[Rfam]
RNA sequence: GGCAGGAAUUCGGGAGAAGCUGGCCCCCGCGCCGGUGCCGACGGAGCAACCGCCCCGGUAAACUCUCAGGCAAAAAGACCGUUUUCCGGCA
Numbered sequence: 001g002g003c004a005g006g007a008a009u010u011c012g013g014g015a016g017a018a019g020c021u022g023g024c025c026c027c028c029g030c031g032c033c034g035g036u037g038c039c040g041a042c043g044g045a046g047c048a049a050c051c052g053c054c055c056c057g058g059u060a061a062a063c064u065c066u067c068a069g070g071c072a073a074a075a076a077g078a079c080c081g082u083u084u085u086c087c088g089g090c091a
Base pairs, nucleotide, nucleotide: 006086007085008084011081012080013079020035021034022033023032037071038070039069040067041066044065045064046063050058051057
Shown here is a 91-nucleotide RNA sequence from Paracoccus sp. R12_2, a member of the family "Glycine riboswitch aptamer".
Lineage of the source: Bacteria > Pseudomonadati > Rhodobacterales > Paracoccaceae > Paracoccus.
It scores 57 bits against the family's covariance model.
Its family is annotated with glycine biosynthetic process in the Gene Ontology.